[Rfam]
RNA sequence: UUUUUCCACUAGGGGUGCCGUGACGGCUGAGAGAAAAGCGCGGGCUUUUCAACCCUUGAACCUGAUCUGGGUAAUACCAGCGGAGGGAAGUGUACUGGAGGUUUG
Number, nucleotide and partner (000 for none) at each position: 001u000002u000003u000004u000005u000006c000007c092008a091009c090010u089011a056012g055013g054014g053015g000016u000017g027018c026019c025020g024021u000022g000023a000024c020025g019026g018027c017028u000029g000030a000031g000032a000033g000034a049035a048036a047037a046038g045039c000040g000041c000042g000043g000044g000045c038046u037047u036048u035049u034050c000051a000052a000053c014054c013055c012056u011057u000058g000059a000060a000061c086062c085063u084064g000065a000066u000067c080068u079069g078070g077071g000072u000073a000074a000075u000076a000077c070078c069079a068080g067081c000082g000083g000084a063085g062086g061087g000088a000089a010090g009091u008092g007093u000094a000095c000096u000097g000098g000099a000100g000101g000102u000103u000104u000105g000